RNA sequence: GUUUUUCCAUGACGGUGUUUCCUCUAAAUUUACAUGGAGAAACACCUGAUUUCCAGAAAAAU
Numbered sequence: 001g002u003u004u005u006u007c008c009a010u011g012a013c014g015g016u017g018u019u020u021c022c023u024c025u026a027a028a029u030u031u032a033c034a035u036g037g038a039g040a041a042a043c044a045c046c047u048g049a050u051u052u053c054c055a056g057a058a059a060a061a062u
Base pairs, nucleotide, nucleotide: 001062002061003060004059005058014046015045016044017043018042019041020040021039023037029036
Overview
Selenocysteine insertion sequence 1: a 62-nucleotide RNA. The base pairs follow the family's consensus structure, which is taken from published work. It is one of the family's seed sequences. Rfam classes the family as a cis-regulatory element.